[Rfam]
RNA sequence: CGAACCAGACAGGGGAGCCGAUUGGCUGAGAGUGCGGAACCGACCGCAGACCCUCACACCUGAUCCGGGUAAUACCGGCGUAGGAAGUCGUUCGUCGACCGCU
Number, nucleotide and partner (000 for none) at each position: 001c000002g000003a000004a000005c000006c000007a000008g089009a088010c087011a054012g053013g052014g051015g000016a000017g026018c025019c024020g000021a000022u000023u000024g019025g018026c017027u000028g000029a000030g000031a000032g000033u048034g047035c046036g045037g044038a000039a000040c000041c000042g000043a000044c037045c036046g035047c034048a033049g000050a000051c014052c013053c012054u011055c000056a000057c000058a000059c084060c083061u082062g081063a000064u000065c078066c077067g076068g075069g000070u000071a000072a000073u000074a000075c068076c067077g066078g065079c000080g000081u062082a061083g060084g059085a000086a000087g010088u009089c008090g000091u000092u000093c000094g000095u000096c000097g000098a000099c000100c000101g000102c000103u000
This 103-nucleotide sequence from Glycomyces paridis belongs to the Rfam family "TPP riboswitch aptamer (THI element)". It scores 63 bits against the family's covariance model.